[Rfam]
RNA: FuFi-1 RNA
Organism: Blautia argi
RNA sequence: UGUGUCAGCGGUAAGGCAUCUUGCAGAACUAAAACUGCGAAAGUGACACAGUGCUUGAUAGAAGCGCUUGGGACCAUCUUGUGUGGUGAAAACCUGCAAAGUACAUAGGGUAAAAAAAUUUAGACAAGAACUGUAGGGAAUGGUCCUCCUUACAGUUUUUU
Numbered sequence: 001u002g003u004g005u006c007a008g009c010g011g012u013a014a015g016g017c018a019u020c021u022u023g024c025a026g027a028a029c030u031a032a033a034a035c036u037g038c039g040a041a042a043g044u045g046a047c048a049c050a051g052u053g054c055u056u057g058a059u060a061g062a063a064g065c066g067c068u069u070g071g072g073a074c075c076a077u078c079u080u081g082u083g084u085g086g087u088g089a090a091a092a093c094c095u096g097c098a099a100a101g102u103a104c105a106u107a108g109g110g111u112a113a114a115a116a117a118a119u120u121u122a123g124a125c126a127a128g129a130a131c132u133g134u135a136g137g138g139a140a141u142g143g144u145c146c147u148c149c150u151u152a153c154a155g156u157u158u159u160u161u
Base pairs, nucleotide, nucleotide: 001050002049003048004047005046006045007044022039023038024037025036026035029123030122031121032120033119051104052103053102054101055100056099064084065083066082067081070078071146072145073144074143075142076141077140085094086093087092127159128158129157130156131155132154133153134152135151136150137149138148139147